[Rfam]
Overview
Rfam assigns this 127-nucleotide RNA from Chelydra serpentina to the family "Small nucleolar RNA SNORA38". The match comes from Rfam's covariance-model search (61 bits). Rfam's curators write: ACA38 is a member of the H/ACA class of snoRNA that guide the sites of modification of uridines to pseudouridines. By type it is an H/ACA-box small nucleolar RNA. The family's consensus secondary structure was predicted with RNAfold.

RNA sequence: GCCUCCCACAAAGGCGUGCCCGUACCCUGCACUGUGUGGGCACGUAAGAACCGGAGGCAAAGCACUGAAAGUAACGAGUAACGGGACAGCUGCUCCCUGUGCUGCUCCUGUACUUCACUUCCUACAC
Number, nucleotide and partner (000 for none) at each position: 001g000002c057003c056004u055005c054006c053007c000008a000009c000010a000011a000012a000013g000014g000015c044016g043017u042018g041019c040020c039021c038022g000023u000024a000025c029026c000027c000028u000029g025030c000031a000032c000033u000034g000035u000036g000037u000038g021039g020040g019041c018042a017043c016044g015045u000046a000047a000048g000049a000050a000051c000052c000053g006054g005055a004056g003057g002058c000059a000060a000061a000062g000063c000064a000065c000066u000067g121068a120069a119070a000071g118072u000073a000074a000075c000076g000077a000078g000079u000080a000081a000082c000083g000084g000085g000086a000087c000088a106089g105090c104091u000092g102093c101094u000095c000096c000097c000098u000099g000100u000101g093102c092103u000104g090105c089106u088107c000108c000109u000110g000111u000112a000113c000114u000115u000116c000117a000118c071119u069120u068121c067122c000123u000124a000125c000126a000127c000